[Rfam]
RNA sequence: AGACGGAGGAGAUCGCCGGCAUGUUGCCCCCGCGCCGGUGGGCUCCUUCGGGGGGCGGGCUUCGUGCCCGCUCCCUUAAACCUUCCGUUGGACAACGCCCCCCUCCGUCGGAAGGAACUCGGGCGGUGAAGUCCCCCCAAGCUUCACCGCCCACCUUU
Dot-bracket structure: ........(((.(((.((((.............)))).))).))).....((((((((((.....))))))))))..(..((..(((..(((...........)))..)))..))...).((((((((((((........))))))))))))......
Numbered sequence: 001a002g003a004c005g006g007a008g009g010a011g012a013u014c015g016c017c018g019g020c021a022u023g024u025u026g027c028c029c030c031c032g033c034g035c036c037g038g039u040g041g042g043c044u045c046c047u048u049c050g051g052g053g054g055g056c057g058g059g060c061u062u063c064g065u066g067c068c069c070g071c072u073c074c075c076u077u078a079a080a081c082c083u084u085c086c087g088u089u090g091g092a093c094a095a096c097g098c099c100c101c102c103c104u105c106c107g108u109c110g111g112a113a114g115g116a117a118c119u120c121g122g123g124c125g126g127u128g129a130a131g132u133c134c135c136c137c138c139a140a141g142c143u144u145c146a147c148c149g150c151c152c153a154c155c156u157u158u
Stems, first nucleotide, its partner, number of pairs: 009045003013041003017037004051075010078119001081115002085111003090106003121152012
The record is a 158-nucleotide RNA from Bradyrhizobium sp. STM 3843, which matches "Bradyrhizobiaceae sRNA BjrC80" in Rfam.
It is annotated as a small RNA.
The organism belongs to Bradyrhizobium, within Bacteria.